About this RNA
Shown here is a 79-nucleotide RNA sequence from Medicago truncatula, a member of the family "MIR5269 microRNA precursor family". Rfam links the family to the GO terms miRNA-mediated post-transcriptional gene silencing and RISC complex.
[Rfam]
RNA sequence: UUAGUUUAAAUCAUUGUAGAUCUAGACUUUGAAAAUUGAACCCACAUAAAAUGGUGGAACAUACAUGGGUUUUAUCCAA
Numbered sequence: 001u002u003a004g005u006u007u008a009a010a011u012c013a014u015u016g017u018a019g020a021u022c023u024a025g026a027c028u029u030u031g032a033a034a035a036u037u038g039a040a041c042c043c044a045c046a047u048a049a050a051a052u053g054g055u056g057g058a059a060c061a062u063a064c065a066u067g068g069g070u071u072u073u074a075u076c077c078a079a
Stems, first nucleotide, its partner, number of pairs: 001079002004076001006074001008072005015065004022057003026052001028050004